[Rfam]
A member of the RNA family "TPP riboswitch aptamer (THI element)" from Novosphingobium barchaimii, 128 nucleotides long. It scores 56 bits against the family's covariance model. Gene Ontology term of the family: thiamine pyrophosphate binding. NCBI's taxonomy places the organism under Bacteria, Pseudomonadati, Sphingomonadaceae, Novosphingobium, Novosphingobium barchaimii. From the family's description: Vitamin B(1) in its active form thiamin pyrophosphate (TPP) is an essential coenzyme that is synthesised by coupling of pyrimidine and thiazole moieties in bacteria.

RNA sequence: CGCCCCACCCCGGGGAGCCUAGCAGGGUCCAAGCGGACUCUGGGCUGAGAGGUGUGGGUAUGCUCCACACGACCCGUCGAACCUGAACCCGUUAAUACGGGCGGAGGGAGUGGACGCGGUUUCGUGUA
Numbered sequence: 001c002g003c004c005c006c007a008c009c010c011c012g013g014g015g016a017g018c019c020u021a022g023c024a025g026g027g028u029c030c031a032a033g034c035g036g037a038c039u040c041u042g043g044g045c046u047g048a049g050a051g052g053u054g055u056g057g058g059u060a061u062g063c064u065c066c067a068c069a070c071g072a073c074c075c076g077u078c079g080a081a082c083c084u085g086a087a088c089c090c091g092u093u094a095a096u097a098c099g100g101g102c103g104g105a106g107g108g109a110g111u112g113g114a115c116g117c118g119g120u121u122u123c124g125u126g127u128a
Base pairs, nucleotide, nucleotide: 006116009113010112011076012075013074014073017045018044019043020042021041052070053069054068055067056066057065058064082107083106084105088101089100090099091098